[Rfam]
Rfam assigns this 73-nucleotide RNA from Candidatus Methanomassiliicoccus intestinalis to the family "tRNA". The family's consensus secondary structure is taken from published work. It is annotated as a transfer RNA. Taxonomically the source falls in Candidatus Methanomassiliicoccus intestinalis (Archaea, Methanobacteriati, Thermoplasmata, Methanomassiliicoccales).
RNA sequence: GCCCUGGUAGUGUAGCGGCCUAUCAUGAAGCCCUGUCGAGGCUUCGACUCGGGUUCAAAUCCCGACCAGGGCG
Numbered sequence: 001g002c003c004c005u006g007g008u009a010g011u012g013u014a015g016c017g018g019c020c021u022a023u024c025a026u027g028a029a030g031c032c033c034u035g036u037c038g039a040g041g042c043u044u045c046g047a048c049u050c051g052g053g054u055u056c057a058a059a060u061c062c063c064g065a066c067c068a069g070g071g072c073g
Base pairs, nucleotide, nucleotide: 001072002071003070004069005068006067007066010026011025012024028044029043030042031041032040049065050064051063052062053061